[Rfam]
RNA sequence: AAUAGAUUUAUGCCACAUCAGCAUUUUCAUCCUGAAUUUUAGUAUUUCCAUCCUGAAAAAAAUCAAAAUCAAAUUAAAAUCCUGAAAUUCAGAAUAAUAAUACUGAUGUGACAUAAAACUAUU
Numbered sequence: 001a002a003u004a005g006a007u008u009u010a011u012g013c014c015a016c017a018u019c020a021g022c023a024u025u026u027u028c029a030u031c032c033u034g035a036a037u038u039u040u041a042g043u044a045u046u047u048c049c050a051u052c053c054u055g056a057a058a059a060a061a062a063u064c065a066a067a068a069u070c071a072a073a074u075u076a077a078a079a080u081c082c083u084g085a086a087a088u089u090c091a092g093a094a095u096a097a098u099a100a101u102a103c104u105g106a107u108g109u110g111a112c113a114u115a116a117a118a119c120u121a122u123u
Base pairs, nucleotide, nucleotide: 001123002122003121004120005119007117008116009115010114011113012112014110015109016108017107018106019105020104021103023101024100025099027097029095030094032092033091034090035089036088037087038086039085041083042082045079046078047077